BsrG: a 252-nucleotide sequence from Brevibacillus sp. SYP-B805. A reference for the family is Jahn and Brantl (2013), "One antitoxin--two functions: SR4 controls toxin mRNA decay and translation", Nucleic Acids Res. A search with the family's covariance model found it, with a score of 120 bits.
RNA sequence: UACAGUAGAUCGGCUCCUCAAGGGUGGUCGGCUCAUCCCCGAUCGAAAGGGGGUGGGGCUAUGACAGUAUAUGAGUCGAUAUCAGUGAUGAUUGCUUUUGCCAUGCUGAUAGUGGCGAUACUGUCCUUCCCUAAAAAGAAGUAGAUCACCCUUGAACACUUCCAUCCAGGUGAUCCACAACAUCGCGAUAUGAGCCGCCCCCUUGUGGGGAACGCCUAUUGUACAGAACCGCAGGUGUUGCCGCACCUGCGG
Numbered sequence: 001u002a003c004a005g006u007a008g009a010u011c012g013g014c015u016c017c018u019c020a021a022g023g024g025u026g027g028u029c030g031g032c033u034c035a036u037c038c039c040c041g042a043u044c045g046a047a048a049g050g051g052g053g054u055g056g057g058g059c060u061a062u063g064a065c066a067g068u069a070u071a072u073g074a075g076u077c078g079a080u081a082u083c084a085g086u087g088a089u090g091a092u093u094g095c096u097u098u099u100g101c102c103a104u105g106c107u108g109a110u111a112g113u114g115g116c117g118a119u120a121c122u123g124u125c126c127u128u129c130c131c132u133a134a135a136a137a138g139a140a141g142u143a144g145a146u147c148a149c150c151c152u153u154g155a156a157c158a159c160u161u162c163c164a165u166c167c168a169g170g171u172g173a174u175c176c177a178c179a180a181c182a183u184c185g186c187g188a189u190a191u192g193a194g195c196c197g198c199c200c201c202c203u204u205g206u207g208g209g210g211a212a213c214g215c216c217u218a219u220u221g222u223a224c225a226g227a228a229c230c231g232c233a234g235g236u237g238u239u240g241c242c243g244c245a246c247c248u249g250c251g252g
Base pairs, nucleotide, nucleotide: 001223002222003221004220005219007217008216011197012196013195014194015193016192018155019154020153021152022151023150024149026146028144033056034055035054037052038051039050040049063125064124065123066122067121068120069119076091077090078089100116101115102114103113168183198210199209200208201207229252230251231250232249233248234247235246236245237244238243

Gene Ontology terms of the family: toxin activity and autolysis. By type it is a small RNA. The family's consensus secondary structure was predicted with WAR.